[Rfam]
RNA: Group II catalytic intron D1-D4-1
Organism: Paenalicyclobacillus macrosporangiidus
RNA sequence: UAACCGCCGUCGAGAGGCGGCGCUGAACGGACAGGAGUCAGCAGAGGCCAUAGUACAUGGGCUAGCGCUCGCCUGCGGAAGGCC
Number, nucleotide and partner (000 for none) at each position: 001u025002a024003a000004c000005c022006g021007c020008c019009g018010u017011c016012g000013a000014g000015a000016g011017g010018c009019g008020g007021c006022g005023c000024u002025g001026a000027a000028c000029g000030g000031a000032c000033a000034g000035g000036a000037g000038u045039c044040a000041g000042c000043a000044g039045a038046g000047g084048c000049c082050a000051u000052a000053g000054u000055a000056c077057a000058u075059g074060g073061g072062c000063u000064a000065g000066c000067g000068c000069u000070c000071g000072c061073c060074u059075g058076c000077g056078g000079a000080a000081g000082g049083c000084c047